A member of the RNA family "Bacterial large signal recognition particle RNA" from Thermobrachium celere, 265 nucleotides long. Rfam describes the family as follows. The signal recognition particle (SRP) is a universally conserved ribonucleoprotein involved in the co-translational targeting of proteins to membranes. Pairs were carried over by alignment from the consensus structure, which is taken from published work. The source organism's lineage runs through Bacteria, Bacillati, Eubacteriales, Clostridiaceae and Thermobrachium celere. On this family, see Rosenblad et al., Nucleic Acids Res 2003: "SRPDB: Signal Recognition Particle Database". A search with the family's covariance model found it, with a score of 227 bits.
RNA sequence: CCGUGCUAGACGGGGAGGUAGCGGUGCCCUGUAACCUGCAAUCCGCUAUAGCAGGGUUGAAUUCCUUACCUAGGUGUAAGCAUGUAGGGACUGACCUGGGUAAGUGGUGUUGAAGAUUGGGUCCUGCGCAACGGAAAUUCAUGAACCCCGCCAGGUCCGGAAGGAAGCAACGGUAAGUGAACACUUCCGUGUGCCGUGGGUAAGCCUGAUUGGAGCUUACUGCCCAGGUAACGCUUGUAGGCUUACAUCGAAGUAAGGUGCACGG
Numbered sequence: 001c002c003g004u005g006c007u008a009g010a011c012g013g014g015g016a017g018g019u020a021g022c023g024g025u026g027c028c029c030u031g032u033a034a035c036c037u038g039c040a041a042u043c044c045g046c047u048a049u050a051g052c053a054g055g056g057u058u059g060a061a062u063u064c065c066u067u068a069c070c071u072a073g074g075u076g077u078a079a080g081c082a083u084g085u086a087g088g089g090a091c092u093g094a095c096c097u098g099g100g101u102a103a104g105u106g107g108u109g110u111u112g113a114a115g116a117u118u119g120g121g122u123c124c125u126g127c128g129c130a131a132c133g134g135a136a137a138u139u140c141a142u143g144a145a146c147c148c149c150g151c152c153a154g155g156u157c158c159g160g161a162a163g164g165a166a167g168c169a170a171c172g173g174u175a176a177g178u179g180a181a182c183a184c185u186u187c188c189g190u191g192u193g194c195c196g197u198g199g200g201u202a203a204g205c206c207u208g209a210u211u212g213g214a215g216c217u218u219a220c221u222g223c224c225c226a227g228g229u230a231a232c233g234c235u236u237g238u239a240g241g242c243u244u245a246c247a248u249c250g251a252a253g254u255a256a257g258g259u260g261c262a263c264g265g
Stems, first nucleotide, its partner, number of pairs: 001265006009058003012030004017025001019023001035055005064258006073249005079243003083239006092230002096227006104220002106217003115211008123200006129191002132189005138181005148173003156165003
Dot-bracket structure: ((((((..(((((((.(.(...).).))))....(((((...........)))))))).....((((((...(((((.(((.((((((...((..((((((..(((((......((((((((((((((((.(((((.(((((.....(((.....(((....))).....)))...)))))...)))))))...))))))...))))))))...))).)).)))))).))...)))))).))).)))))...)))))).))))))